The family of this 432-nucleotide sequence from Robbsia andropogonis is "Bacterial RNase P class A". It is annotated as a ribozyme.
RNA sequence: AAAGUGUUCCAGGCAGCCGCCGCCUGCGUUGUCUCUCAUCGUCACGCGUUGACGGGGAAAGGGGGCAGGGGGAGGAAAGUCCGGACUCCACAGGGCAGGGUGAUGGCUAACGGCCAUCCGUGGCGACACGCGGAACAGGGCAACAGAGAACAGACCGCCGAUGGCCGUUGCAUGCUCGCAUGCAACGGAUCAGGUAAGGGUGAAACGGUGCGGUAAGAGCGCACCGCGGCUGGGGCGACCCAGACGGCACGGUAACCUCCACCCGGAGCAAUUCCAAAUAGGCAGGCACGGCGCCGGUAACGGCGUCACGACGGGGCCCCCGUCGGUCUGCGGGUAGGGAGCUCGAGCGCAUCAGCAAUGGUGCGUCUAGAUGAAUGGCUGUCGCGCGCUUCGCGGCGCGAACAGAAUCCGGCUUAUCGGGACACUUUGCCC
Number, nucleotide and partner (000 for none) at each position: 001a428002a427003a426004g425005u424006g423007u422008u421009c420010c419011a417012g383013g382014c381015a380016g379017c378018c377019g000020c072021c071022g000023c069024c068025u067026g066027c065028g000029u000030u000031g000032u000033c000034u000035c000036u000037c000038a000039u000040c000041g000042u000043c000044a000045c000046g000047c000048g000049u000050u000051g000052a000053c000054g000055g000056g000057g000058a000059a000060a000061g000062g000063g000064g000065g027066c026067a025068g024069g023070g000071g021072g020073a000074g000075g000076a000077a415078a414079g413080u000081c412082c411083g410084g409085a408086c268087u267088c266089c265090a000091c000092a000093g319094g318095g317096c316097a000098g264099g263100g262101u261102g260103a117104u116105g115106g114107c113108u000109a000110a000111c000112g000113g107114c106115c105116a104117u103118c132119c130120g129121u128122g127123g000124c000125g000126a000127c122128a121129c120130g119131c000132g118133g259134a258135a000136c000137a000138g257139g256140g253141c252142a000143a000144c000145a000146g000147a000148g000149a000150a000151c000152a000153g000154a000155c199156c198157g195158c194159c193160g000161a000162u192163g191164g190165c000166c188167g000168u000169u000170g000171c000172a000173u000174g000175c000176u000177c000178g000179c000180a000181u000182g000183c000184a000185a000186c000187g000188g166189a000190u164191c163192a162193g159194g158195u157196a000197a000198g156199g155200g000201u000202g000203a000204a000205a000206c000207g225208g224209u223210g222211c221212g220213g000214u000215a000216a000217g000218a000219g000220c212221g211222c210223a209224c208225c207226g248227c246228g245229g000230c243231u242232g241233g240234g239235g000236c000237g000238a000239c234240c233241c232242a231243g230244a000245c228246g227247g000248c226249a000250c000251g000252g141253u140254a000255a000256c139257c138258u134259c133260c102261a101262c100263c099264c098265g089266g088267a087268g086269c000270a000271a000272u340273u339274c338275c337276a000277a000278a000279u000280a000281g000282g331283c330284a329285g328286g327287c326288a000289c000290g000291g000292c000293g000294c000295c000296g000297g000298u000299a000300a000301c000302g000303g000304c000305g000306u000307c000308a000309c000310g324311a323312c322313g321314g320315g000316g096317c095318c094319c093320c314321c313322g312323u311324c310325g000326g287327u286328c285329u284330g283331c282332g000333g000334g000335u000336a000337g275338g274339g273340a272341g000342c000343u000344c000345g000346a000347g366348c365349g364350c363351a362352u361353c360354a359355g000356c000357a000358a000359u354360g353361g352362u351363g350364c349365g348366u347367c000368u000369a000370g000371a000372u000373g000374a000375a000376u000377g018378g017379c016380u015381g014382u013383c012384g000385c000386g000387c000388g000389c000390u000391u000392c000393g000394c000395g000396g000397c000398g000399c000400g000401a000402a000403c000404a000405g000406a000407a000408u085409c084410c083411g082412g081413c079414u078415u077416a000417u011418c000419g010420g009421g008422a007423c006424a005425c004426u003427u002428u001429g000430c000431c000432c000